[Rfam]
RNA sequence: AAUGAUACUUCUGCCUUGAACGCUUAUCGGUAUUGGGCAGCCUGCAAUGAAUGACAGGAUAACGCUCAUUUGGCUUGAGAACUUAUAGCCAUGUCAGCUUAU
Dot-bracket structure: ..........(((((....................)))))(((((.......).))))((((.((..(..(((((...........)))))..)..))))))
Numbered sequence: 001a002a003u004g005a006u007a008c009u010u011c012u013g014c015c016u017u018g019a020a021c022g023c024u025u026a027u028c029g030g031u032a033u034u035g036g037g038c039a040g041c042c043u044g045c046a047a048u049g050a051a052u053g054a055c056a057g058g059a060u061a062a063c064g065c066u067c068a069u070u071u072g073g074c075u076u077g078a079g080a081a082c083u084u085a086u087a088g089c090c091a092u093g094u095c096a097g098c099u100u101a102u
Stems, first nucleotide, its partner, number of pairs: 011040005041058004045053001059102004064098002068094001071091005